TPP riboswitch aptamer (THI element): a 103-nucleotide RNA sequence from Virgibacillus salarius.

[Rfam]
RNA sequence: GGAAACUACUAGGGGCGCUUUGUUGCUGAGAUAAGGACUUUUCCUUUGUCCCUUUGAACCUGAUCUGGAUAAUACCAGCGCAGGAAAGUAGUGGGGAACAUAU
Numbered sequence: 001g002g003a004a005a006c007u008a009c010u011a012g013g014g015g016c017g018c019u020u021u022g023u024u025g026c027u028g029a030g031a032u033a034a035g036g037a038c039u040u041u042u043c044c045u046u047u048g049u050c051c052c053u054u055u056g057a058a059c060c061u062g063a064u065c066u067g068g069a070u071a072a073u074a075c076c077a078g079c080g081c082a083g084g085a086a087a088g089u090a091g092u093g094g095g096g097a098a099c100a101u102a103u
Base pairs, nucleotide, nucleotide: 006091007090008089009088010087011053012052013051014050017026018025033046034045035044036043037042059084060083061082062081065078066077067076068075

Rfam links the family to the GO term thiamine pyrophosphate binding.